[Rfam]
A member of the RNA family "Bacterial large subunit ribosomal RNA" from Oceanithermus profundus, 339 nucleotides of a longer RNA.

RNA sequence: CGAGAGAACCCUCGCUAAGGAACUCUGCAAAAUGGCCCCGUAACUUCGGGAGAAGGGGUGCUGCGCGUAGGGUGAUGAGCCCGAGGCAGCCGCAGUGAACAGGCUCUGGCGACUGUUUACCAAAAACACAGCUCUCUGCGAACACGUAAGUGGACGUAUAGGGAGCGACGCUUGCCCGGUGCCGGAAGGUCAAGGGGAGGGGUGCAAGCUCCGAACCGAAGCCCCGGUGAACGGCGGCCGUAACUAUAACGGUCCUAAGGUAGCGAAAUUCCUUGUCGGGUAAGUUCCGACCUGCACGAAAAGCGUAACGAUCGGAGCGCUGUCUCAGCGAGGGACUCG
Numbered sequence: 001c002g003a004g005a006g007a008a009c010c011c012u013c014g015c016u017a018a019g020g021a022a023c024u025c026u027g028c029a030a031a032a033u034g035g036c037c038c039c040g041u042a043a044c045u046u047c048g049g050g051a052g053a054a055g056g057g058g059u060g061c062u063g064c065g066c067g068u069a070g071g072g073u074g075a076u077g078a079g080c081c082c083g084a085g086g087c088a089g090c091c092g093c094a095g096u097g098a099a100c101a102g103g104c105u106c107u108g109g110c111g112a113c114u115g116u117u118u119a120c121c122a123a124a125a126a127c128a129c130a131g132c133u134c135u136c137u138g139c140g141a142a143c144a145c146g147u148a149a150g151u152g153g154a155c156g157u158a159u160a161g162g163g164a165g166c167g168a169c170g171c172u173u174g175c176c177c178g179g180u181g182c183c184g185g186a187a188g189g190u191c192a193a194g195g196g197g198a199g200g201g202g203u204g205c206a207a208g209c210u211c212c213g214a215a216c217c218g219a220a221g222c223c224c225c226g227g228u229g230a231a232c233g234g235c236g237g238c239c240g241u242a243a244c245u246a247u248a249a250c251g252g253u254c255c256u257a258a259g260g261u262a263g264c265g266a267a268a269u270u271c272c273u274u275g276u277c278g279g280g281u282a283a284g285u286u287c288c289g290a291c292c293u294g295c296a297c298g299a300a301a302a303g304c305g306u307a308a309c310g311a312u313c314g315g316a317g318c319g320c321u322g323u324c325u326c327a328g329c330g331a332g333g334g335a336c337u338c339g
Stems, first nucleotide, its partner, number of pairs: 001339004009334008018325003035059005044049001060090005068084001070082004091095001103318007110310002114128003131166008139156001143152003169305004174235003179232002181228005188223003194217002199212005236254006255259001265292001275291006
Gene Ontology terms of the family: ribosome and structural constituent of ribosome. NCBI's taxonomy places the organism under Bacteria, Thermotogati, Deinococci, Oceanithermus, Oceanithermus profundus. Pairs were carried over by alignment from the consensus structure, which is taken from published work. Its Rfam clan is "LSU clan".